Notes: This 121-nucleotide RNA sequence from Coptis chinensis belongs to the Rfam family "Plastid-psbA-1 3UTR RNA". The literature on the family includes a 2023 paper in Plant Commun by Richter et al., "Retrograde signaling in plants: A critical review focusing on the GUN pathway and beyond". The family is grouped with related families in Rfam's "Plastid-psbA 3UTR RNA clan". The family's RNA type in Rfam is cis-regulatory element. Lineage of the source: Eukaryota > Spermatophyta > Mesangiospermae > Ranunculaceae > Coptis. About the family: Plastid psbA-1 is a non-coding RNA (ncRNA) present in plastids. It was identified in inverted repeat sequences in the 3 prime untranslate region (3UTR) of photosystem II quinone-binding protein (psbA).
RNA sequence: GUUGAAGUUCCAUCCACAAAUGGCUAGGUCUUAGUGUACGCGAGUUUUAGUGUAUAUGAGUUGUUGAAGUUGCAGGAGUAAUACCAAAAUUCUUAACAAAACAAGAAUUUUGGUAUUACUC
Numbered sequence: 001g002u003u004g005a006a007g008u009u010c011c012a013u014c015c016a017c018a019a020a021u022g023g024c025u026a027g028g029u030c031u032u033a034g035u036g037u038a039c040g041c042g043a044g045u046u047u048u049a050g051u052g053u054a055u056a057u058g059a060g061u062u063g064u065u066g067a068a069g070u071u072g073c074a075g076g077a078g079u080a081a082u083a084c085c086a087a088a089a090u091u092c093u094u095a096a097c098a099a100a101a102c103a104a105g106a107a108u109u110u111u112g113g114u115a116u117u118a119c120u121c
Base pairs, nucleotide, nucleotide: 010023011022012021013020076121077120078119079118080117081116082115083114084113086111087110088109090107091106092105093104094103